[Rfam]
RNA sequence: AUGUAGUGUGACAUGCCCGUUGGAUUUUACUCUGAUGUUGUGCGUUUAAUUAUUAUUUAAUUACUUUUGGGUAACGGGGUGUUACAGUAUC
Numbered sequence: 001a002u003g004u005a006g007u008g009u010g011a012c013a014u015g016c017c018c019g020u021u022g023g024a025u026u027u028u029a030c031u032c033u034g035a036u037g038u039u040g041u042g043c044g045u046u047u048a049a050u051u052a053u054u055a056u057u058u059a060a061u062u063a064c065u066u067u068u069g070g071g072u073a074a075c076g077g078g079g080u081g082u083u084a085c086a087g088u089a090u091c
Base pairs, nucleotide, nucleotide: 003090004089005088007086008085009084010083011082012081013080014079016078017077018076019075020074021073
The record is a 91-nucleotide RNA sequence from Medicago truncatula, which matches "MIR2617 microRNA precursor family" in Rfam. Rfam 15.1 lists 1,174 matches to the family in 2 species. Gene Ontology terms of the family: miRNA-mediated post-transcriptional gene silencing and RISC complex.